RNA sequence: UACUCUUACGCCUGAAAUUUGCUUUUUACCUGGCCCUCGUGCUCUCUUACUUUGAGAAAAUAAAGGUGAGCAAAGUUUCAGGUGUGUGAGUGC
Numbered sequence: 001u002a003c004u005c006u007u008a009c010g011c012c013u014g015a016a017a018u019u020u021g022c023u024u025u026u027u028a029c030c031u032g033g034c035c036c037u038c039g040u041g042c043u044c045u046c047u048u049a050c051u052u053u054g055a056g057a058a059a060a061u062a063a064a065g066g067u068g069a070g071c072a073a074a075g076u077u078u079c080a081g082g083u084g085u086g087u088g089a090g091u092g093c
Stems, first nucleotide, its partner, number of pairs: 002091004007086001009084007016076001018074003022070003029066003
A member of the RNA family "mir-87 microRNA precursor family" from Apis mellifera, 93 nucleotides long.